RNA sequence: GGCCGGACUCCGCCGAACUGUCGUCGAUGACCAUCACGACAGACCGGGGACCCACAGUUCCCUCGGGGUGAAUCCUGCGCACUCACCUGUGCCAGGUAGGGCGCCUUCCCGCCCGAACCCGUCAGCUAACUCGGUAGGCGGCGUGAAGGAACGGA
Numbered sequence: 001g002g003c004c005g006g007a008c009u010c011c012g013c014c015g016a017a018c019u020g021u022c023g024u025c026g027a028u029g030a031c032c033a034u035c036a037c038g039a040c041a042g043a044c045c046g047g048g049g050a051c052c053c054a055c056a057g058u059u060c061c062c063u064c065g066g067g068g069u070g071a072a073u074c075c076u077g078c079g080c081a082c083u084c085a086c087c088u089g090u091g092c093c094a095g096g097u098a099g100g101g102c103g104c105c106u107u108c109c110c111g112c113c114c115g116a117a118c119c120c121g122u123c124a125g126c127u128a129a130c131u132c133g134g135u136a137g138g139c140g141g142c143g144u145g146a147a148g149g150a151a152c153g154g155a
Base pairs, nucleotide, nucleotide: 011140012139013138014137018042019041020040021039022038023037024036043135044134045133046132047131048130053065066120067119068118074096075095076094077093099114100113101112102111
The family of this 155-nucleotide RNA from Blastococcus sp. DSM 46786 is "c-di-AMP riboswitch aptamer (ydaO/yuaA leader)".
Rfam links the family to the GO terms cyclic-di-AMP binding and regulation of gene expression.
NCBI's taxonomy places the organism under Bacteria, Bacillati, Actinomycetota, Actinomycetes, Blastococcus.
It scores 78 bits against the family's covariance model.